TPP riboswitch aptamer (THI element): a 104-nucleotide RNA sequence from Shewanella sp. SNU WT4. It scores 80 bits against the family's covariance model. Rfam describes the family as follows. Vitamin B(1) in its active form thiamin pyrophosphate (TPP) is an essential coenzyme that is synthesised by coupling of pyrimidine and thiazole moieties in bacteria. The previously detected thiamin-regulatory element, thi box was extended, resulting in a new, highly conserved RNA secondary structure, the THI element, which is widely distributed in eubacteria and also occurs in some archaea. Analysis of operon structures identified a large number of new candidate thiamin-regulated genes, mostly transporters, in various prokaryotic organisms. NCBI's taxonomy places the organism under Bacteria, Pseudomonadota, Gammaproteobacteria, Alteromonadales, Shewanella.
RNA sequence: GCGGCCGCCAAGGGGUGUCAGCAGCGCUGACUGAGAUGUCGAUAGACGAACCCUUAGAACCUGAUCCGGCUUAUACCGGCGUAGGAAUGGUGUGUUUAUUGCCU
Numbered sequence: 001g002c003g004g005c006c007g008c009c010a011a012g013g014g015g016u017g018u019c020a021g022c023a024g025c026g027c028u029g030a031c032u033g034a035g036a037u038g039u040c041g042a043u044a045g046a047c048g049a050a051c052c053c054u055u056a057g058a059a060c061c062u063g064a065u066c067c068g069g070c071u072u073a074u075a076c077c078g079g080c081g082u083a084g085g086a087a088u089g090g091u092g093u094g095u096u097u098a099u100u101g102c103c104u
Base pairs, nucleotide, nucleotide: 006092007091008090009089010088011054012053013052014051016048017031018030019029020028021027038047039046040045060085061084062083063082066079067078068077069076